A member of the RNA family "Archaeal signal recognition particle RNA" from Haloferax volcanii, 312 nucleotides long. For this family Rfam cites "Towards the structure of the mammalian signal recognition particle" (Wild et al., Curr Opin Struct Biol, 2002).
RNA sequence: GAGUGGACUAGGUCGGGCAGUUAGGCCCUGCUCUUCACCCGCGAAAUAGGUCUUUAGCGGGGACCGAACACGGGCGCGUCCGGUCAGACCGGCGCGGGCCCCGGAAGCCAACGUAGAAACCUCGUCCUUCGGGGACAGCGGUUCCGCGUACCCCUUCCGCAGGGAAGGGUUCGCGCGGUUUAUCGGUGGUACCCCGCCAGGCGCGGAAGCGAGCAGCGGACCAUCGGACGUGCGUCGCUCGAGGGAUCGCGGGGUGGAGGAGGCAACCGGGAUUCCCCACGUCGGAACGCCGGGCAACCUCGCUGUCCACCC
Numbered sequence: 001g002a003g004u005g006g007a008c009u010a011g012g013u014c015g016g017g018c019a020g021u022u023a024g025g026c027c028c029u030g031c032u033c034u035u036c037a038c039c040c041g042c043g044a045a046a047u048a049g050g051u052c053u054u055u056a057g058c059g060g061g062g063a064c065c066g067a068a069c070a071c072g073g074g075c076g077c078g079u080c081c082g083g084u085c086a087g088a089c090c091g092g093c094g095c096g097g098g099c100c101c102c103g104g105a106a107g108c109c110a111a112c113g114u115a116g117a118a119a120c121c122u123c124g125u126c127c128u129u130c131g132g133g134g135a136c137a138g139c140g141g142u143u144c145c146g147c148g149u150a151c152c153c154c155u156u157c158c159g160c161a162g163g164g165a166a167g168g169g170u171u172c173g174c175g176c177g178g179u180u181u182a183u184c185g186g187u188g189g190u191a192c193c194c195c196g197c198c199a200g201g202c203g204c205g206g207a208a209g210c211g212a213g214c215a216g217c218g219g220a221c222c223a224u225c226g227g228a229c230g231u232g233c234g235u236c237g238c239u240c241g242a243g244g245g246a247u248c249g250c251g252g253g254g255u256g257g258a259g260g261a262g263g264c265a266a267c268c269g270g271g272a273u274u275c276c277c278c279a280c281g282u283c284g285g286a287a288c289g290c291c292g293g294g295c296a297a298c299c300u301c302g303c304u305g306u307c308c309a310c311c312c
Base pairs, nucleotide, nucleotide: 001312003310004309005308006307007306008305011065012064013063014062015033016032017031018030019029020028038061039060040059041058042057044055071302072301073300074299078295079294080293081292082290089285090284091283092282093281094280096278097277098276100271101270102269103268104267107264108263109262112259114257119255120254121253122252123251124250125249126245127244128243129242130241131240132239133238134236135235136234138231139230140229141180143178144177150171152169153168154167155166156165157164158163183227184226185225186224187223188222189221194219195218196217197216202211203210204209

It is annotated as a non-coding RNA gene. A search with the family's covariance model found it, with a score of 194 bits. The family is grouped with related families in Rfam's "SRP clan". Rfam links the family to the GO terms signal recognition particle, plasma membrane targeting and SRP-dependent cotranslational protein targeting to membrane, signal sequence recognition.